putative aminoglycoside riboswitch / attI site: a 77-nucleotide RNA sequence from Fluviibacter phosphoraccumulans.
Rfam links the family to the GO terms regulation of gene expression and aminoglycoside antibiotic metabolic process.
The organism belongs to Fluviibacter, within Bacteria.
Rfam classes the family as a cis-regulatory element.
Conserved RNA structure found upstream of the bacterial aminoglycosides antibiotic-resistant genes: aminoglycoside acetyl transferase (AAC) and aminoglycoside adenyl transferase (AAD). It has putative short open reading frame (ORF) that encode leader peptide upstream of the resistance gene. 75 nucleotide long sequence from the first ribosome binding site (SD1) up to the coding sequence was shown to have the regulatory role, and it was considered the minima functional RNA. Aminoglycosides bind to specific regions of AAC/AAD 5' leader and induce change in the RNA structure. The drug binding induces expression of the resistance protein. The leader RNA is widely distributed among antibiotic-resistant bacterial pathogens.
RNA sequence: GGAGCAGCAACGAUGUUACGCAGCAGGGCAGUCGCCCUAAAACAAAGUUAUGCUCUGUGAGCCUGGUUAUUGGCGAA
Numbered sequence: 001g002g003a004g005c006a007g008c009a010a011c012g013a014u015g016u017u018a019c020g021c022a023g024c025a026g027g028g029c030a031g032u033c034g035c036c037c038u039a040a041a042a043c044a045a046a047g048u049u050a051u052g053c054u055c056u057g058u059g060a061g062c063c064u065g066g067u068u069a070u071u072g073g074c075g076a077a
Stems, first nucleotide, its partner, number of pairs: 004074001006017001008015002020056001023053002026037004038050003059071001061067002